[Rfam]
RNA sequence: AGCUUUCUGAAUCUGUGUUGAGAUUUCGUCACACACCGACUCACUAGGAGUGAUGAGACUUCCGAGAUUAGUGAAGUG
Number, nucleotide and partner (000 for none) at each position: 001a000002g077003c076004u075005u074006u073007c000008u071009g000010a069011a068012u067013c066014u000015g000016u064017g063018u000019u000020g061021a060022g059023a000024u058025u057026u056027c055028g054029u053030c052031a000032c000033a000034c000035a000036c000037c000038g000039a000040c000041u000042c000043a000044c000045u000046a000047g000048g000049a000050g000051u000052g030053a029054u028055g027056a026057g025058a024059c022060u021061u020062c000063c017064g016065a000066g013067a012068u011069u010070a000071g008072u000073g006074a005075a004076g003077u002078g000

Overview
mir-3492 microRNA precursor family: a 78-nucleotide RNA sequence from Schistosoma japonicum. The family's consensus secondary structure was predicted with RNAalifold.